Shown here is a 144-nucleotide RNA from Agrobacterium sp. AGB01, a member of the family "Alphaproteobacterial sRNA ar7". The base pairs follow the family's consensus structure. Lineage of the source: Bacteria > Pseudomonadati > Pseudomonadota > Rhizobiaceae > Agrobacterium. A search with the family's covariance model found it, with a score of 110 bits.

RNA sequence: CAACGGCGCCUGAUCACGCCGUAGUCUGAUAGCUGGCUCGUCCCCCGCCGCGUCAGACCGGACAAAGGCCUUCCCCCCCUCUCCGGGCCUUUGUCCCUCGAUAAGCCGCCAUGGCCGACCCCCUCCCGGCCGUGGCGGUUUUUU
Numbered sequence: 001c002a003a004c005g006g007c008g009c010c011u012g013a014u015c016a017c018g019c020c021g022u023a024g025u026c027u028g029a030u031a032g033c034u035g036g037c038u039c040g041u042c043c044c045c046c047g048c049c050g051c052g053u054c055a056g057a058c059c060g061g062a063c064a065a066a067g068g069c070c071u072u073c074c075c076c077c078c079c080u081c082u083c084c085g086g087g088c089c090u091u092u093g094u095c096c097c098u099c100g101a102u103a104a105g106c107c108g109c110c111a112u113g114g115c116c117g118a119c120c121c122c123c124u125c126c127c128g129g130c131c132g133u134g135g136c137g138g139u140u141u142u143u144u
Stems, first nucleotide, its partner, number of pairs: 025057006035049003060096011103140001106138012